[Rfam]
RNA sequence: CGCAUACGCCUUCUUGGGCGUUUCCUCCCUAGACUUCAGGCCGCCUGAAAAGGCGGCCUUCUUUUUGCACAUU
Numbered sequence: 001c002g003c004a005u006a007c008g009c010c011u012u013c014u015u016g017g018g019c020g021u022u023u024c025c026u027c028c029c030u031a032g033a034c035u036u037c038a039g040g041c042c043g044c045c046u047g048a049a050a051a052g053g054c055g056g057c058c059u060u061c062u063u064u065u066u067g068c069a070c071a072u073u
Stems, first nucleotide, its partner, number of pairs: 008019004039058008
Source information:
The family of this 73-nucleotide RNA sequence from Skermanella aerolata is "Makes More Granules Regulator RNA (mmgR)". SuhB later renamed mmgR (makes more granules regulator) was a putative non-coding RNA found multiple times in the Agrobacterium tumefaciens genome and related alpha-proteobacteria. Other non-coding RNAs uncovered in the same analysis include: speF, ybhL, metA, and serC.Several studies inSinorhizobium meliloti showed that suhB element is indeed a non-coding RNA:firstly it was detected on Northern blot and called Sm8RNA, secondly in an RNAseq study referred to as SmelC689.The mutant phenotype's (strain lacking the small RNA) cytoplasm contains higher content of polyhydroxybutyrate (PBH)storage granules than wild type strain. The sRNA is required to limit the PBH intracellular accumulation when the nitrogen-fixing Sinorhizobium meliloti is under condition of surplus carbon in relation to nitrogen. It has been renamed to mmgR. Further study confirmed that mmgR fine-tunes the regulation of PBH storage.Northern blot confirmed the expression of the sRNA in other rhizobia species. Lineage of the source: Bacteria > Pseudomonadati > Pseudomonadota > Azospirillaceae > Skermanella. A search with the family's covariance model found it, with a score of 62 bits. The family's RNA type in Rfam is small RNA.